Notes: A member of the RNA family "U5 spliceosomal RNA" from Solanum lycopersicum, 117 nucleotides long. The source organism's lineage runs through Eukaryota, eudicotyledons, Solanaceae, Solanoideae and Solanum subgen. Lycopersicon. Its family is annotated with U5 snRNP and spliceosomal tri-snRNP complex assembly in the Gene Ontology. The base pairs follow the family's consensus structure, which is taken from published work. Rfam's curators write: U5 RNA is a component of both types of known spliceosome. The precise function of this molecule is unknown, though it is known that the 5' loop is required for splice site selection and p220 binding, and that both the 3' stem-loop and the Sm site are important for Sm protein binding and cap methylation. For this family Rfam cites "Domain analysis of human U5 RNA. Cap trimethylation, protein binding, and spliceosome assembly" (Hinz et al., J Biol Chem, 1996).

[Rfam]
RNA sequence: AGCCACGCAGUGAGCACAAAGCGAACUAUUCUUUCGCCUUUUACUAAAGAAUACCGUGUGCGCGUUGUAAAUAGUGGCAUACUCCAAUUUUUGGAGGGGUUCUCUUAUUUAGGAGUU
Number, nucleotide and partner (000 for none) at each position: 001a000002g000003c077004c076005a075006c074007g000008c067009a066010g065011u064012g063013a000014g061015c060016a059017c058018a057019a000020a000021g000022c000023g000024a000025a000026c000027u053028a052029u051030u050031c049032u048033u047034u046035c000036g000037c000038c000039u000040u000041u000042u000043a000044c000045u000046a034047a033048a032049g031050a030051a029052u028053a027054c000055c000056g000057u018058g017059u016060g015061c014062g000063c012064g011065u010066u009067g008068u000069a000070a000071a000072u000073a000074g006075u005076g004077g003078c000079a000080u000081a000082c000083u000084c000085c000086a000087a000088u000089u000090u000091u000092u000093g000094g000095a117096g000097g000098g000099g000100u000101u000102c115103u114104c113105u112106u111107a000108u000109u000110u000111a106112g105113g104114a103115g102116u000117u095